[Rfam]
The record is a 73-nucleotide RNA from Phyllotreta striolata, which matches "mir-219 microRNA precursor family" in Rfam.
RNA sequence: UUUGGCCCUGAUUGUCCAAACGCAAUUCUUGUUGAUUUUUAUUCAAGAACUGUGUGUGGACAUCACUGCUUGA
Dot-bracket structure: .(.(((..((((.(((((..((((.((((((............)))))).))))..)))))))))..))).).
Pairs were carried over by alignment from the consensus structure, which was predicted with RNAalifold.
The family has 92 seed sequences and 1,318 matches in Rfam 15.1.
A search with the family's covariance model found it, with a score of 70 bits.